[Rfam]
RNA sequence: GAAGCCUGCCAGACCGCCGCUGGUGCAAUCUGGGAAACCAGGCACUGGAGGAACGUCCGGACUGCACAGGACAGCGUAGGAGGUAACACCUCUCCACCGUGAGGUGAGGAUCAGAGCAACAGAGACGAGUCGGCCUUGGGGCAACCCCGGGCCGGGUGAAACGGGCAAUCUCUACGCGCAGCAAUACCAAGUAGGCCAGCGUUGAUGUGGUUCCGCAGAGCUGGCGGGUAGGUAGCAUUGAGCCGCGGGGGCGACCCCCGGCCCAGAUUAAUGGCGGUCACACGGGCAACCGAAAGGAAGCCCGCGCACAGAAUCCGGCUUAUCGGUGGGCUUCACAC
Numbered sequence: 001g002a003a004g005c006c007u008g009c010c011a012g013a014c015c016g017c018c019g020c021u022g023g024u025g026c027a028a029u030c031u032g033g034g035a036a037a038c039c040a041g042g043c044a045c046u047g048g049a050g051g052a053a054c055g056u057c058c059g060g061a062c063u064g065c066a067c068a069g070g071a072c073a074g075c076g077u078a079g080g081a082g083g084u085a086a087c088a089c090c091u092c093u094c095c096a097c098c099g100u101g102a103g104g105u106g107a108g109g110a111u112c113a114g115a116g117c118a119a120c121a122g123a124g125a126c127g128a129g130u131c132g133g134c135c136u137u138g139g140g141g142c143a144a145c146c147c148c149g150g151g152c153c154g155g156g157u158g159a160a161a162c163g164g165g166c167a168a169u170c171u172c173u174a175c176g177c178g179c180a181g182c183a184a185u186a187c188c189a190a191g192u193a194g195g196c197c198a199g200c201g202u203u204g205a206u207g208u209g210g211u212u213c214c215g216c217a218g219a220g221c222u223g224g225c226g227g228g229u230a231g232g233u234a235g236c237a238u239u240g241a242g243c244c245g246c247g248g249g250g251g252c253g254a255c256c257c258c259c260g261g262c263c264c265a266g267a268u269u270a271a272u273g274g275c276g277g278u279c280a281c282a283c284g285g286g287c288a289a290c291c292g293a294a295a296g297g298a299a300g301c302c303c304g305c306g307c308a309c310a311g312a313a314u315c316c317g318g319c320u321u322a323u324c325g326g327u328g329g330g331c332u333u334c335a336c337a338c
Base pairs, nucleotide, nucleotide: 001334002333003332004331005330006329007328008327009326010325011323012279013278014277015276016275017274018273020048021047022046023045024044025043026042053321055319057318058317059316060315061314062181063180064179065178069212070211074177075176076175077174078173079093080092081091082090083089094108095106096105097104098103109172110171114170115169116166117165131154132153133152134151135150136149138147139146140145185234186233187232188231195225196224197223198222199221200220206217207216208215209214242262243261244260245259247258248257249256250255
RNA: Bacterial RNase P class A
Organism: Polaromonas sp. Pch-P